[Rfam]
Nucleotides: 118
Stems, first nucleotide, its partner, number of pairs: 005035004014029005044078002048074001052070006080113001082111001084109010
Number, partner (000 for none) and nucleotide at each position: 001000a002000u003000a004000a005035c006034c007033u008032u009000u010000a011000a012000u013000u014029u015028a016027g017026u018025c019000c020000a021000g022000a023000g024000a025018g026017g027016c028015u029014g030000u031000c032008a033007a034006g035005g036000g037000a038000a039000a040000u041000c042000a043000a044078g045077a046000u047000u048074a049000a050000c051000a052070g053069g054068c055067a056066g057065a058000g059000g060000u061000a062000c063000a064000a065057u066056c067055u068054g069053c070052c071000c072000a073000c074048u075000u076000u077045u078044u079000u080113g081000u082111g083000u084109a085108a086107c087106c088105u089104u090103g091102c092101c093100a094000g095000u096000u097000a098000g099000u100093u101092g102091g103090u104089a105088a106087g107086g108085u109084u110000u111082u112000u113080u114000u115000u116000c117000a118000u